Shown here is a 90-nucleotide sequence from Beggiatoa sp. PS, a member of the family "t44 RNA". NCBI's taxonomy places the organism under Bacteria, Pseudomonadati, Gammaproteobacteria, Thiotrichales, Beggiatoa. From the family's description: This family consists of a number of bacterial RNA genes of between 135 and 170 bases in length. For this family Rfam cites "Transcriptome analysis of Escherichia coli using high-density oligonucleotide probe arrays" (Tjaden et al., Nucleic Acids Res, 2002).
[Rfam]
RNA sequence: GUUGCCUGAGUACAAAAACACACAUACACCGUCACAGAGAUUGGGGUGCUCAUAGCCAGAGUCAAUCUUUGGGGUGUGUGGAGGCGUAAC
Number, nucleotide and partner (000 for none) at each position: 001g000002u000003u000004g000005c000006c000007u000008g000009a000010g000011u000012a000013c000014a000015a000016a000017a000018a000019c000020a000021c000022a000023c080024a079025u078026a077027c076028a075029c074030c073031g000032u000033c000034a000035c071036a070037g069038a068039g067040a066041u065042u064043g063044g000045g000046g000047u000048g062049c061050u060051c059052a000053u000054a000055g000056c000057c000058a000059g051060a050061g049062u048063c043064a042065a041066u040067c039068u038069u037070u036071g035072g000073g030074g029075u028076g027077u026078g025079u024080g023081g000082a000083g000084g000085c000086g000087u000088a000089a000090c000